[Rfam]
RNA sequence: GCGUGCCGCCGCGGUCUACGUCGGCGCGCCGUCAUCUGUUGGGUCCGCCCGCACGGCACGGGGCGGAAGAGGCGAGAGGA
Dot-bracket structure: ((((((((.((.......))).))))))).(((..((......(((((((..........))))))))).))).......
A member of the RNA family "aspS RNA", 80 nucleotides long. By type it is a cis-regulatory element. Rfam's curators put it in the seed alignment.